[Rfam]
Annotation:
The family of this 48-nucleotide RNA sequence from Streptomyces fulvorobeus is "raiA-hairpin RNA". The organism belongs to Streptomyces, within Bacteria. The family's RNA type in Rfam is small RNA.
RNA sequence: CGCCCAGUCCGAAGCUCCGGCCAUGACCGGAGUUUGGUGCAAAAGGGA
Number, nucleotide and partner (000 for none) at each position: 001c000002g000003c000004c000005c000006a000007g000008u000009c000010c000011g000012a000013a034014g033015c032016u031017c030018c029019g028020g027021c000022c000023a000024u000025g000026a000027c020028c019029g018030g017031a016032g015033u014034u013035u000036g000037g000038u000039g000040c000041a000042a000043a000044a000045g000046g000047g000048a000